[Rfam]
RNA: Bacterial RNase P class A
Organism: Rhodovulum sp. P5
RNA sequence: GCGGAUGGCCGGAUGGCCGCGGUCCCGUCAGGGGUCGAGGAAAGUCCGGACUCCACGGAGCGACGGUGCCGGGUAACGCCCGGCGGGGGAAACCCCAGGGACAGCGCCACAGAGAACAGACCGCCCCCGCCUGCGGGGGUAAGGGUGAAACGGUGGGGUAAGGGCCCACCGCGGGACUGGCAACAGGACCGGCACGGCAAGCCCCACCGGGAGCAAUGCCGAAUAGGGACCCCGCGCACCGCGCGUGCAGGGCAGCUUCGGCCCAGGGGUCCGGGUUGGCAGCUAGAGCGUAUCGGCAACGAUGCGCGCAGAGGAAUGGUCAUCCAGCCCCGGAUCACGGUUCGGGGUGGACAGAAUCCGGCUUACAGGCCGUCCGCGCAU
Numbered sequence: 001g002c003g004g005a006u007g008g009c010c011g012g013a014u015g016g017c018c019g020c021g022g023u024c025c026c027g028u029c030a031g032g033g034g035u036c037g038a039g040g041a042a043a044g045u046c047c048g049g050a051c052u053c054c055a056c057g058g059a060g061c062g063a064c065g066g067u068g069c070c071g072g073g074u075a076a077c078g079c080c081c082g083g084c085g086g087g088g089g090a091a092a093c094c095c096c097a098g099g100g101a102c103a104g105c106g107c108c109a110c111a112g113a114g115a116a117c118a119g120a121c122c123g124c125c126c127c128c129g130c131c132u133g134c135g136g137g138g139g140u141a142a143g144g145g146u147g148a149a150a151c152g153g154u155g156g157g158g159u160a161a162g163g164g165c166c167c168a169c170c171g172c173g174g175g176a177c178u179g180g181c182a183a184c185a186g187g188a189c190c191g192g193c194a195c196g197g198c199a200a201g202c203c204c205c206a207c208c209g210g211g212a213g214c215a216a217u218g219c220c221g222a223a224u225a226g227g228g229a230c231c232c233c234g235c236g237c238a239c240c241g242c243g244c245g246u247g248c249a250g251g252g253c254a255g256c257u258u259c260g261g262c263c264c265a266g267g268g269g270u271c272c273g274g275g276u277u278g279g280c281a282g283c284u285a286g287a288g289c290g291u292a293u294c295g296g297c298a299a300c301g302a303u304g305c306g307c308g309c310a311g312a313g314g315a316a317u318g319g320u321c322a323u324c325c326a327g328c329c330c331c332g333g334a335u336c337a338c339g340g341u342u343c344g345g346g347g348u349g350g351a352c353a354g355a356a357u358c359c360g361g362c363u364u365a366c367a368g369g370c371c372g373u374c375c376g377c378g379c380a381u
Stems, first nucleotide, its partner, number of pairs: 001377010011366001012324007020037007042364003046361005051213004060258001062256001064209005069083005084098001085096004099204002104202002106198003121144002123140007152170006171193001172191003177186003217281004227272006250264004288307008